[Rfam]
RNA sequence: GACCUCGCCCCAUGGCGAAACAUACACAUAGUUCAUCUAGCUGGUAGAUGAUGACAAUAAGGUCAUCCGGUCGAAGGUUAUAGGGUAAAAAAUAGCAGACAA
Numbered sequence: 001g002a003c004c005u006c007g008c009c010c011c012a013u014g015g016c017g018a019a020a021c022a023u024a025c026a027c028a029u030a031g032u033u034c035a036u037c038u039a040g041c042u043g044g045u046a047g048a049u050g051a052u053g054a055c056a057a058u059a060a061g062g063u064c065a066u067c068c069g070g071u072c073g074a075a076g077g078u079u080a081u082a083g084g085g086u087a088a089a090a091a092a093u094a095g096c097a098g099a100c101a102a
Base pairs, nucleotide, nucleotide: 006017007016008015009014039079040078041077047072050067051066052065053064054063055062
RNA: RT-17 RNA